[Rfam]
RNA: Nitrogen stress-induced RNA 9
RNA sequence: UACUGUAUUCACGUCUGUGAGUGUGGUUAAUUUCAAAUUAGCCACUGUUGCUGAUUGUUGGGAAGGUGUAAGGACAACCCUUCUGGGGUUUUCCUGCAUUUUGGGCAUCUCUUGCAGAUGCCU
Numbered sequence: 001u002a003c004u005g006u007a008u009u010c011a012c013g014u015c016u017g018u019g020a021g022u023g024u025g026g027u028u029a030a031u032u033u034c035a036a037a038u039u040a041g042c043c044a045c046u047g048u049u050g051c052u053g054a055u056u057g058u059u060g061g062g063a064a065g066g067u068g069u070a071a072g073g074a075c076a077a078c079c080c081u082u083c084u085g086g087g088g089u090u091u092u093c094c095u096g097c098a099u100u101u102u103g104g105g106c107a108u109c110u111c112u113u114g115c116a117g118a119u120g121c122c123u
Stems, first nucleotide, its partner, number of pairs: 006066001008064003012060002015057001017055002020052003023045007067098004072093003076089001078087002103123008